[Rfam]
Plant signal recognition particle RNA: a 311-nucleotide RNA from Hibiscus syriacus. The family's consensus secondary structure is taken from published work. The family is grouped with related families in Rfam's "SRP clan".

RNA sequence: GCCGAGCUUUGUAAAGGAAGCUUGUAACCCGAGUGGGGGCAUUAAUUGAGGUGAUGGGACAUGGGUUGGCUCCUUGAGUCGGAUCCCACGAGGCUUUGUAAUGGCUUGCCCGUUCCAGGCAAAGAGUUGGGCCAUGGGAUCUCAGUGUAAACUGUUGGUGUCUCGUGGCUAUUAGAGUGAAGGGUACUGCGUGAGGCUGGUUUCACAGAGAAGCGAAGACUUUCCUCUCUUAACAGUGGAAGGAUAACAAGCUUCAUUCCCAAAGAUUCAACAUGUCUCACUGAGCCCACCUUCAAUGGACGAUCAUCUUU
Numbered sequence: 001g002c003c004g005a006g007c008u009u010u011g012u013a014a015a016g017g018a019a020g021c022u023u024g025u026a027a028c029c030c031g032a033g034u035g036g037g038g039g040c041a042u043u044a045a046u047u048g049a050g051g052u053g054a055u056g057g058g059a060c061a062u063g064g065g066u067u068g069g070c071u072c073c074u075u076g077a078g079u080c081g082g083a084u085c086c087c088a089c090g091a092g093g094c095u096u097u098g099u100a101a102u103g104g105c106u107u108g109c110c111c112g113u114u115c116c117a118g119g120c121a122a123a124g125a126g127u128u129g130g131g132c133c134a135u136g137g138g139a140u141c142u143c144a145g146u147g148u149a150a151a152c153u154g155u156u157g158g159u160g161u162c163u164c165g166u167g168g169c170u171a172u173u174a175g176a177g178u179g180a181a182g183g184g185u186a187c188u189g190c191g192u193g194a195g196g197c198u199g200g201u202u203u204c205a206c207a208g209a210g211a212a213g214c215g216a217a218g219a220c221u222u223u224c225c226u227c228u229c230u231u232a233a234c235a236g237u238g239g240a241a242g243g244a245u246a247a248c249a250a251g252c253u254u255c256a257u258u259c260c261c262a263a264a265g266a267u268u269c270a271a272c273a274u275g276u277c278u279c280a281c282u283g284a285g286c287c288c289a290c291c292u293u294c295a296a297u298g299g300a301c302g303a304u305c306a307u308c309u310u311u
Base pairs, nucleotide, nucleotide: 001040002039003038004023005022006021007020008019009018010017028037029036030035048310049309050308051307052306053305054304055303057301060298061297062295063294064293065290066289068287069286070285071284072283075280076279077278078277080275081269082268083267084266085265090261092259093258096256103253104252105251106250107249108248110243111242113241114240115239116238117237119234122231123230124229125228126227130170131169132168133167134166135165136164137163138162139161140160142158143157144153145152146151172177179224180223181222182221183220188217190215191214192213197208198207199206